The family of this 70-nucleotide RNA from Flammeovirgaceae bacterium 311 is "Fluoride riboswitch aptamer (crcB RNA motif)".
RNA sequence: GGGCGUAAAGGCAAUGGUGUCUGCCUCAAACCGCCUGUAGUAUUGUCAGGAUGAUGGCGCCUGCUCAUCG
Numbered sequence: 001g002g003g004c005g006u007a008a009a010g011g012c013a014a015u016g017g018u019g020u021c022u023g024c025c026u027c028a029a030a031c032c033g034c035c036u037g038u039a040g041u042a043u044u045g046u047c048a049g050g051a052u053g054a055u056g057g058c059g060c061c062u063g064c065u066c067a068u069c070g
Base pairs, nucleotide, nucleotide: 010025011024012023013022016061017060018059019058020057021056034050035049036048